[Rfam]
RNA sequence: CCAGCCGGCCGGGCGGCCGCACCGGCGGGAACCGAAAGGUUGCAGGUGAGGAAAGUCCGGGCUCCAGGGAAACACGGUGCCGGCUAACGGCCGGCGGGGGCGACCCCAGGGAAAGUGCCACAGAAAGCAGACCGCCCCGUCUUCACGACAGGGCAAGGGUGAAAGGGUGGGGUAAGAGCCCACCGCGCGACUGGCAACAGGAGCGGCAUGGUAAACCCCACCGGGAGCAAAACCGAAUAGGGAUGACGCGAGGGGCGACCCUCAGGGCGGUUUCCGGCCCAGUCAUCCGGGUAGGUUGCAUGAGGCGGGCGGCAACGUCCGCCCAAGACGAAUGGCCGCCACGUUGCGCCGCCCGCAAGGACGGCGUGGCCAUACAGAACCCGGCUUACAGGCCGGCUGGCACU
Numbered sequence: 001c002c003a004g005c006c007g008g009c010c011g012g013g014c015g016g017c018c019g020c021a022c023c024g025g026c027g028g029g030a031a032c033c034g035a036a037a038g039g040u041u042g043c044a045g046g047u048g049a050g051g052a053a054a055g056u057c058c059g060g061g062c063u064c065c066a067g068g069g070a071a072a073c074a075c076g077g078u079g080c081c082g083g084c085u086a087a088c089g090g091c092c093g094g095c096g097g098g099g100g101c102g103a104c105c106c107c108a109g110g111g112a113a114a115g116u117g118c119c120a121c122a123g124a125a126a127g128c129a130g131a132c133c134g135c136c137c138c139g140u141c142u143u144c145a146c147g148a149c150a151g152g153g154c155a156a157g158g159g160u161g162a163a164a165g166g167g168u169g170g171g172g173u174a175a176g177a178g179c180c181c182a183c184c185g186c187g188c189g190a191c192u193g194g195c196a197a198c199a200g201g202a203g204c205g206g207c208a209u210g211g212u213a214a215a216c217c218c219c220a221c222c223g224g225g226a227g228c229a230a231a232a233c234c235g236a237a238u239a240g241g242g243a244u245g246a247c248g249c250g251a252g253g254g255g256c257g258a259c260c261c262u263c264a265g266g267g268c269g270g271u272u273u274c275c276g277g278c279c280c281a282g283u284c285a286u287c288c289g290g291g292u293a294g295g296u297u298g299c300a301u302g303a304g305g306c307g308g309g310c311g312g313c314a315a316c317g318u319c320c321g322c323c324c325a326a327g328a329c330g331a332a333u334g335g336c337c338g339c340c341a342c343g344u345u346g347c348g349c350c351g352c353c354c355g356c357a358a359g360g361a362c363g364g365c366g367u368g369g370c371c372a373u374a375c376a377g378a379a380c381c382c383g384g385c386u387u388a389c390a391g392g393c394c395g396g397c398u399g400g401c402a403c404u
Stems, first nucleotide, its partner, number of pairs: 001400010011389001012340007020048004025043004053387003057384005062227004071273002075223005080094005095109001096107004110218002115216002117212003132158002134154004139149003166184006185207001186205003191200003231297004241288006266280002304323008
Rfam assigns this 404-nucleotide RNA sequence from Neoaquamicrobium microcysteis to the family "Bacterial RNase P class A". The match comes from Rfam's covariance-model search (292 bits).